[Rfam]
RNA sequence: CACACGUAAGGUUUGGGACCGUCCGGGAGAAAUCCGGCCAGUUCCACCCGGUGGCGCCUUCGAAGAAGGUGCUGUUUGCCUUGCGGAGGUUCAACCGGAAAAGGAGAAAAAGG
Dot-bracket structure: (.(.(((((((....((......((.(......))).......)).......(((((((((...))))))))).....)))))))).).........................